[Rfam]
RNA sequence: GGGGGGAGUGCUGGAUCCUGGGCUGUGUCCCCUGGCGACCUGGGCUCUGGGGUCUGCACCGCUGUAAUUGCGCUCCCGGGAAGCGCAGCCCCCU
Numbered sequence: 001g002g003g004g005g006g007a008g009u010g011c012u013g014g015a016u017c018c019u020g021g022g023c024u025g026u027g028u029c030c031c032c033u034g035g036c037g038a039c040c041u042g043g044g045c046u047c048u049g050g051g052g053u054c055u056g057c058a059c060c061g062c063u064g065u066a067a068u069u070g071c072g073c074u075c076c077c078g079g080g081a082a083g084c085g086c087a088g089c090c091c092c093c094u
Stems, first nucleotide, its partner, number of pairs: 001094006010086002012083001017079002020076003024072004028066001032064001033061003037057001042054001044053003
Record summary:
A member of the RNA family "mir-8799 microRNA precursor family" from Nyctereutes procyonoides, 94 nucleotides long. Rfam links the family to the GO terms RISC complex and miRNA-mediated post-transcriptional gene silencing. Pairs were carried over by alignment from the consensus structure, which was predicted with RNAalifold. The match comes from Rfam's covariance-model search (49 bits). The organism belongs to Nyctereutes, within Eukaryota.